Rfam assigns this 132-nucleotide RNA to the family "Staphylococcus-1 RNA". It is one of the family's seed sequences.
[Rfam]
RNA sequence: UUUAACAAACUGAAAACUUUCAAGGAAAUUUGAAAGCUGGCUAAUUAAUCUUCUGUAAUGCUAUUAUGAGGAUUGCCCUUUGAGGUUGAUAGCGAUAGGCCGCCCUAUGAUUAGCCACAUGAUUUUGUUGAA
Numbered sequence: 001u002u003u004a005a006c007a008a009a010c011u012g013a014a015a016a017c018u019u020u021c022a023a024g025g026a027a028a029u030u031u032g033a034a035a036g037c038u039g040g041c042u043a044a045u046u047a048a049u050c051u052u053c054u055g056u057a058a059u060g061c062u063a064u065u066a067u068g069a070g071g072a073u074u075g076c077c078c079u080u081u082g083a084g085g086u087u088g089a090u091a092g093c094g095a096u097a098g099g100c101c102g103c104c105c106u107a108u109g110a111u112u113a114g115c116c117a118c119a120u121g122a123u124u125u126u127g128u129u130g131a132a
Stems, first nucleotide, its partner, number of pairs: 001132009017036008039116007047074007060093005095108005